[Rfam]
RNA sequence: CCCGCCACUGUAGCAGUGUCUGGUUACUUGCUUCAGUCCAGUGGUGUGCUAAGAGUAAAAGCCAUUUUAGGAAACAGGUGCAUUCUGGGUGAGUGACCCUGUGCCGAAAGAUUGGAAACAGGC
Numbered sequence: 001c002c003c004g005c006c007a008c009u010g011u012a013g014c015a016g017u018g019u020c021u022g023g024u025u026a027c028u029u030g031c032u033u034c035a036g037u038c039c040a041g042u043g044g045u046g047u048g049c050u051a052a053g054a055g056u057a058a059a060a061g062c063c064a065u066u067u068u069a070g071g072a073a074a075c076a077g078g079u080g081c082a083u084u085c086u087g088g089g090u091g092a093g094u095g096a097c098c099c100u101g102u103g104c105c106g107a108a109a110g111a112u113u114g115g116a117a118a119c120a121g122g123c
Stems, first nucleotide, its partner, number of pairs: 005044006018031001019026001062115003065111004070105002075101004083093003
RNA: Small nucleolar RNA SNORA65
Organism: Hymenochirus boettgeri